DUF3800-IX RNA: a 69-nucleotide RNA sequence. Actinobacteria, Firmicutes (1 example), Nitrospirae, Proteobacteria, Verrucomicrobia (1 example). The family's RNA type in Rfam is small RNA.
RNA sequence: GCUCUGUGGUCGAACUGUCUCCGGAUGGAGCGCGUGCCUGCUUCUGGCAGGAUAGACCACAGAGCUAUU
Numbered sequence: 001g002c003u004c005u006g007u008g009g010u011c012g013a014a015c016u017g018u019c020u021c022c023g024g025a026u027g028g029a030g031c032g033c034g035u036g037c038c039u040g041c042u043u044c045u046g047g048c049a050g051g052a053u054a055g056a057c058c059a060c061a062g063a064g065c066u067a068u069u
Base pairs, nucleotide, nucleotide: 001065002064003063004062005061006060007059008058009057010056011055016034017033018032019030020029021028022027037051038050039049040048